The family of this 165-nucleotide RNA from Hericium alpestre is "small nucleolar RNA snR35". It scores 43 bits against the family's covariance model. Rfam 15.1 lists 75 matches to the family in 66 species.

RNA sequence: UUCGUGCGGCGACAUGGCCUUACUUUUCCCCAUGUUGCUCAUGGCCGUCUUUUUCACGCGGCCGUUCGAGUGUCAGGCCAUGCCCCGAGCAACACCUGGAACGUCUUAGUACCUUAUAUUCGCGCUCAGACGAGGGGCGGGGAUGGGUCGGUGGUUCCGACAUCU
Numbered sequence: 001u002u003c004g005u006g007c008g009g010c011g012a013c014a015u016g017g018c019c020u021u022a023c024u025u026u027u028c029c030c031c032a033u034g035u036u037g038c039u040c041a042u043g044g045c046c047g048u049c050u051u052u053u054u055c056a057c058g059c060g061g062c063c064g065u066u067c068g069a070g071u072g073u074c075a076g077g078c079c080a081u082g083c084c085c086c087g088a089g090c091a092a093c094a095c096c097u098g099g100a101a102c103g104u105c106u107u108a109g110u111a112c113c114u115u116a117u118a119u120u121c122g123c124g125c126u127c128a129g130a131c132g133a134g135g136g137g138c139g140g141g142g143a144u145g146g147g148u149c150g151g152u153g154g155u156u157c158c159g160a161c162a163u164c165u
Stems, first nucleotide, its partner, number of pairs: 023082001025080001037071004045061004097159006114146004119141004

Lineage of the source: Eukaryota > Dikarya > Agaricomycotina > Russulales > Hericium.
Rfam links the family to the GO terms RNA processing and nucleolus.
Rfam classes the family as an H/ACA-box small nucleolar RNA.
Clan: SNORA13 clan.
The base pairs follow the family's consensus structure, which was predicted with RNAalifold.